Shown here is an 82-nucleotide RNA sequence from Pantherophis guttatus, a member of the family "mir-181 microRNA precursor family". A reference for the family is Ambros (2001), "microRNAs: tiny regulators with great potential", Cell. It scores 51 bits against the family's covariance model.
RNA sequence: AAGUCACAAUCAACAUUCAUUCUGUCGGUGGGUUGUUAUGCUGGAGGAGAAGCUCACUGAUCAGUGAAUGCAACUGUGACUG
Numbered sequence: 001a002a003g004u005c006a007c008a009a010u011c012a013a014c015a016u017u018c019a020u021u022c023u024g025u026c027g028g029u030g031g032g033u034u035g036u037u038a039u040g041c042u043g044g045a046g047g048a049g050a051a052g053c054u055c056a057c058u059g060a061u062c063a064g065u066g067a068a069u070g071c072a073a074c075u076g077u078g079a080c081u082g
Base pairs, nucleotide, nucleotide: 002081003080004079005078006077007076008075014070015069016068017067018066019065020064021063024061025060026059027058028057029056030055032053033052034051
Its family is annotated with miRNA-mediated post-transcriptional gene silencing and RISC complex in the Gene Ontology. The family's consensus secondary structure was predicted with PFOLD.